Shown here is a 107-nucleotide RNA sequence from Pleomorphomonas diazotrophica, a member of the family "SAM-I/IV (S-adenosyl methionine) riboswitch aptamer". The family has 417 seed sequences and 567 matches in Rfam 15.1. The base pairs follow the family's consensus structure, which is taken from published work. On this family, see Weinberg et al., RNA 2008: "The aptamer core of SAM-IV riboswitches mimics the ligand-binding site of SAM-I riboswitches".

RNA sequence: UCUAUGCAUCAAGAGUCGGGGAGACGCCCGACACCAACCUGCUCCCGAGCAAGGUGGUGCCCUUCGCAAGAGGGGGAUGUGGCCGACCGGCAACCAACGGGAUCCCA
Numbered sequence: 001u002c003u004a005u006g007c008a009u010c011a012a013g014a015g016u017c018g019g020g021g022a023g024a025c026g027c028c029c030g031a032c033a034c035c036a037a038c039c040u041g042c043u044c045c046c047g048a049g050c051a052a053g054g055u056g057g058u059g060c061c062c063u064u065c066g067c068a069a070g071a072g073g074g075g076g077a078u079g080u081g082g083c084c085g086a087c088c089g090g091c092a093a094c095c096a097a098c099g100g101g102a103u104c105c106c107a
Stems, first nucleotide, its partner, number of pairs: 006080005015032006033058003038054003041050003082091003